Rfam assigns this 512-nucleotide part of an RNA from Marinobacter gudaonensis to the family "Bacterial large subunit ribosomal RNA". A search with the family's covariance model found it, with a score of 2870 bits.

RNA sequence: AACUAAGCGCAUACGGUGGAUGCCUUGGCAGUCAGAGGCGAUGAAAGACGUGGAAGCCUGCGAUAAGGUUCGGGGAGCUGGCAAACGAGCUGUGAUCCGGACAUUUCUGAAUGGGGAAACCCACCGACUUUCGGGUCGGUAUCUUGCACUGAAUACAUAGGUGCAAGAGGCGAACCGGGGGAACUGAAACAUCUAAGUACCCCGAGGAAAAGAAAUCAACCGAGAUUCCCUAAGUAGCGGCGAGCGAACGGGGACUAGCCCUUAAGCUGGACAACUGGUAGGAGAAGGCUCUGGAAAGUGCCGCCAUAGUGGGUGAUAGCCCCGUAUCCGAAACCUGAGUCUGGUGAAAUCGAGUAGGACGGGACACGUGGUAUCCUGUCUGAACAUGGGGGGACCAUCCUCCAAGGCUAAAUACUCCUGACUGACCGAUAGUGAACCAGUACCGUGAGGGAAAGGCGAAAAGAACCCCUGUGAGGGGAGUGAAAUAGACCCUGAAACCGUAUGCGUACAAG
Dot-bracket structure: ......((((((((((.....(((..(((((((((((((......((((((........))).....(((((((..(((........))).....)))))))...)))....(((....)))(((((((....))))))).(((((((((.........))))))))).))...((((((.....((....))......))))).).........((....))..((((((.....((.....))....)))))..((((.....(((((....(.(((.(((...(((.(......).)))..(...).(((.......)))...)))...))).)...)))))...........((((((((.........))))))))......(((((......)))))..))))..)..)).))))))).))...............((....))....)).........((((.....)))).............).....)))))))))).....
Numbered sequence: 001a002a003c004u005a006a007g008c009g010c011a012u013a014c015g016g017u018g019g020a021u022g023c024c025u026u027g028g029c030a031g032u033c034a035g036a037g038g039c040g041a042u043g044a045a046a047g048a049c050g051u052g053g054a055a056g057c058c059u060g061c062g063a064u065a066a067g068g069u070u071c072g073g074g075g076a077g078c079u080g081g082c083a084a085a086c087g088a089g090c091u092g093u094g095a096u097c098c099g100g101a102c103a104u105u106u107c108u109g110a111a112u113g114g115g116g117a118a119a120c121c122c123a124c125c126g127a128c129u130u131u132c133g134g135g136u137c138g139g140u141a142u143c144u145u146g147c148a149c150u151g152a153a154u155a156c157a158u159a160g161g162u163g164c165a166a167g168a169g170g171c172g173a174a175c176c177g178g179g180g181g182a183a184c185u186g187a188a189a190c191a192u193c194u195a196a197g198u199a200c201c202c203c204g205a206g207g208a209a210a211a212g213a214a215a216u217c218a219a220c221c222g223a224g225a226u227u228c229c230c231u232a233a234g235u236a237g238c239g240g241c242g243a244g245c246g247a248a249c250g251g252g253g254a255c256u257a258g259c260c261c262u263u264a265a266g267c268u269g270g271a272c273a274a275c276u277g278g279u280a281g282g283a284g285a286a287g288g289c290u291c292u293g294g295a296a297a298g299u300g301c302c303g304c305c306a307u308a309g310u311g312g313g314u315g316a317u318a319g320c321c322c323c324g325u326a327u328c329c330g331a332a333a334c335c336u337g338a339g340u341c342u343g344g345u346g347a348a349a350u351c352g353a354g355u356a357g358g359a360c361g362g363g364a365c366a367c368g369u370g371g372u373a374u375c376c377u378g379u380c381u382g383a384a385c386a387u388g389g390g391g392g393g394a395c396c397a398u399c400c401u402c403c404a405a406g407g408c409u410a411a412a413u414a415c416u417c418c419u420g421a422c423u424g425a426c427c428g429a430u431a432g433u434g435a436a437c438c439a440g441u442a443c444c445g446u447g448a449g450g451g452a453a454a455g456g457c458g459a460a461a462a463g464a465a466c467c468c469c470u471g472u473g474a475g476g477g478g479a480g481u482g483a484a485a486u487a488g489a490c491c492c493u494g495a496a497a498c499c500g501u502a503u504g505c506g507u508a509c510a511a512g
Stems, first nucleotide, its partner, number of pairs: 007507010022492001023456002027427002029424007036416002038171002046108003049062003068102007077090003113122003123140007142168009175206001176204005186193002216223002226412001227254005237245002257409004266345005275337001277335003281329003287302003291298001305309001311323003357381008388403005443450002466478004